RNA sequence: GGCGGGGGUGGUGGCGUGCCCCUGUAAUCCAGCUACCUGGAGCCCGGUGCUUGAGGACGGGUUGAGACUGGGAGUCCUUCCCCAUGUUGACCUAUGUUGAUCGGGUGUCCGCGCUGAGCUGGGCGUCGAUAUGGUGACCCCAGGGGAACCCGGCGGUCGCCAGGUCGCCAAAGGAGGAGCGAACCGGCCCAGGGCGGAAACGCAGCAGGCAAAAGCUCCCGCGCUCUGCAGUAGCGGGAUAGCACCUGUGAAUGGGCGGCAUGGGGUAGCCCAGUCGAUACACCCGGACCUAGCACUUU
Numbered sequence: 001g002g003c004g005g006g007g008g009u010g011g012u013g014g015c016g017u018g019c020c021c022c023u024g025u026a027a028u029c030c031a032g033c034u035a036c037c038u039g040g041a042g043c044c045c046g047g048u049g050c051u052u053g054a055g056g057a058c059g060g061g062u063u064g065a066g067a068c069u070g071g072g073a074g075u076c077c078u079u080c081c082c083c084a085u086g087u088u089g090a091c092c093u094a095u096g097u098u099g100a101u102c103g104g105g106u107g108u109c110c111g112c113g114c115u116g117a118g119c120u121g122g123g124c125g126u127c128g129a130u131a132u133g134g135u136g137a138c139c140c141c142a143g144g145g146g147a148a149c150c151c152g153g154c155g156g157u158c159g160c161c162a163g164g165u166c167g168c169c170a171a172a173g174g175a176g177g178a179g180c181g182a183a184c185c186g187g188c189c190c191a192g193g194g195c196g197g198a199a200a201c202g203c204a205g206c207a208g209g210c211a212a213a214a215g216c217u218c219c220c221g222c223g224c225u226c227u228g229c230a231g232u233a234g235c236g237g238g239a240u241a242g243c244a245c246c247u248g249u250g251a252a253u254g255g256g257c258g259g260c261a262u263g264g265g266g267u268a269g270c271c272c273a274g275u276c277g278a279u280a281c282a283c284c285c286g287g288a289c290c291u292a293g294c295a296c297u298u299u
Base pairs, nucleotide, nucleotide: 001044002043003042004023005022006021007020008019009018010017028041029040030039046297047296048295049294050293051292053290058286059285060284061283062282066276067275068274069273070272071271072270077269078268080266081265082264083263084262085261086260087259088258089257091256092255093254094253095252097250102248103247104246105245106244107243108242109238110237112236113235114234115233116232118229119228121226122225123224124223125222126221127167128166129165130164132162133161134160135159136158137157138156139155140153141152143150144149168174169173176219177218178217179216180215187210188209189208194203195202196201

Record summary
Shown here is a 299-nucleotide RNA sequence from Rhipicephalus sanguineus, a member of the family "Metazoan signal recognition particle RNA". Taxonomically the source falls in Rhipicephalus (Eukaryota, Metazoa, Eumetazoa, Panarthropoda). On this family, see Batey et al., J Mol Biol 2001: "Structural and energetic analysis of RNA recognition by a universally conserved protein from the signal recognition particle". The family has 91 seed sequences and 383,523 matches in Rfam 15.1. From the family's description: The signal recognition particle (SRP) is a universally conserved ribonucleoprotein. It is involved in the co-translational targeting of proteins to membranes. The eukaryotic SRP consists of a 300-nucleotide 7S RNA and six proteins: SRPs 72, 68, 54, 19, 14, and 9. Archaeal SRP consists of a 7S RNA and homologues of the eukaryotic SRP19 and SRP54 proteins. Eukaryotic and archaeal 7S RNAs have very similar secondary structures, as represented by this family. Eight helical elements fold into the Alu and S domains, separated by a long linker region. The Alu domain is thought to mediate the peptide chain elongation retardation function of the SRP. The universally conserved helix which interacts with the SRP54 M domain mediates signal sequence recognition. In eukaryotes and archaea, the SRP19-helix 6 complex is thought to be involved in SRP assembly and stabilises helix 8 for SRP54 binding. The Signal Recognition Particle Database (SRPDB) provides compilations of SRP components, with phylogenetic data and structural illustrations. Many sequences below the threshold for this family are clearly closely related, but are most likely to be SRP RNA derived pseudogenes. The human genome in particular is known to contain a large amount of SRP RNA related sequence, including Alu repeats. While the threshold of this family is set high so as to minimise the number of hits to such regions, it is likely that some remain. It scores 267 bits against the family's covariance model.